RNA: THF (Tetrahydrofolate) riboswitch aptamer
Organism: Leuconostoc carnosum
RNA sequence: AACGGGGUAGAUAUCUGCGCGUUAAGUGUGAAGGAAACGGAAUGUGGGCCUUCAACGAAGUAAAUGGUAAAACAUUUAUGCGGUGCGGAUAUCACAUUCACCAAA
Numbered sequence: 001a002a003c004g005g006g007g008u009a010g011a012u013a014u015c016u017g018c019g020c021g022u023u024a025a026g027u028g029u030g031a032a033g034g035a036a037a038c039g040g041a042a043u044g045u046g047g048g049c050c051u052u053c054a055a056c057g058a059a060g061u062a063a064a065u066g067g068u069a070a071a072a073c074a075u076u077u078a079u080g081c082g083g084u085g086c087g088g089a090u091a092u093c094a095c096a097u098u099c100a101c102c103a104a105a
Stems, first nucleotide, its partner, number of pairs: 004102002010093010020082003026056002029054006040099005060079007